[Rfam]
RNA sequence: UUUCUAGAUGAUUAUAAAAUUUAUUGGGAAUCUCUCUGAGGAAGUAUAUGCAGGACAAAAUAAAUUUUUAGGAAUUCUUCGUUUAUGAUUUGAAA
Numbered sequence: 001u002u003u004c005u006a007g008a009u010g011a012u013u014a015u016a017a018a019a020u021u022u023a024u025u026g027g028g029a030a031u032c033u034c035u036c037u038g039a040g041g042a043a044g045u046a047u048a049u050g051c052a053g054g055a056c057a058a059a060a061u062a063a064a065u066u067u068u069u070a071g072g073a074a075u076u077c078u079u080c081g082u083u084u085a086u087g088a089u090u091u092g093a094a095a
Base pairs, nucleotide, nucleotide: 001095002094003093004092
RNA: Small nucleolar RNA snR57